[Rfam]
RNA sequence: AAAAAGUGGAAUUCAGAAACCACUUUAAUAAACGAGGCGUAACCUGAAAAGCCAUAUGAGUAAGGAACAAA
Numbered sequence: 001a002a003a004a005a006g007u008g009g010a011a012u013u014c015a016g017a018a019a020c021c022a023c024u025u026u027a028a029u030a031a032a033c034g035a036g037g038c039g040u041a042a043c044c045u046g047a048a049a050a051g052c053c054a055u056a057u058g059a060g061u062a063a064g065g066a067a068c069a070a071a
Stems, first nucleotide, its partner, number of pairs: 006023004036053003043065002
The family of this 71-nucleotide sequence from Flavobacterium sp. KMS is "DUF805 RNA". The organism belongs to Flavobacterium, within Bacteria. A search with the family's covariance model found it, with a score of 76 bits. Its Rfam clan is "DUF805 clan". The family's RNA type in Rfam is cis-regulatory element.